[Rfam]
RNA sequence: UGCUGUGAUGAUGUAAUUUGCGUCUUACCCAGCGUCCAGCGACAGUUGCCUGCUGUCGGUGUGCUGGCGCUGCCGGGCUGGAGACCCUUUCGUUCUGAGCA
Numbered sequence: 001u002g003c004u005g006u007g008a009u010g011a012u013g014u015a016a017u018u019u020g021c022g023u024c025u026u027a028c029c030c031a032g033c034g035u036c037c038a039g040c041g042a043c044a045g046u047u048g049c050c051u052g053c054u055g056u057c058g059g060u061g062u063g064c065u066g067g068c069g070c071u072g073c074c075g076g077g078c079u080g081g082a083g084a085c086c087c088u089u090u091c092g093u094u095c096u097g098a099g100c101a
Stems, first nucleotide, its partner, number of pairs: 001101003021083001023081002030072005039064002041057005